The record is a 114-nucleotide sequence from Alteribacillus bidgolensis, which matches "ylbH leader" in Rfam. It scores 84 bits against the family's covariance model. On this family, see Barrick et al., Proc Natl Acad Sci U S A 2004: "New RNA motifs suggest an expanded scope for riboswitches in bacterial genetic control". Gene Ontology term of the family: regulation of gene expression. This family is a putative regulatory RNA structure that is found upstream of the ylbH gene in B. subtilis and related low GC Gram-positive bacteria.

[Rfam]
RNA sequence: AUAAAAAAAGGCUGUUCCUCAGGGUGUAGGAACAGCCUUGCCCGUAUAUCCCGGGCUAUGGGAGAGGAGAAACCGGAGGAAGAGCUUAUGGGGAAACGUAAGCCUUCUCCGCGG
Numbered sequence: 001a002u003a004a005a006a007a008a009a010g011g012c013u014g015u016u017c018c019u020c021a022g023g024g025u026g027u028a029g030g031a032a033c034a035g036c037c038u039u040g041c042c043c044g045u046a047u048a049u050c051c052c053g054g055g056c057u058a059u060g061g062g063a064g065a066g067g068a069g070a071a072a073c074c075g076g077a078g079g080a081a082g083a084g085c086u087u088a089u090g091g092g093g094a095a096a097c098g099u100a101a102g103c104c105u106u107c108u109c110c111g112c113g114g
Base pairs, nucleotide, nucleotide: 011036012035013034014033015032016031017030018029019028041062042061043060044059045058074111075110076109077108079107080106081105082104084103085102086101087100088099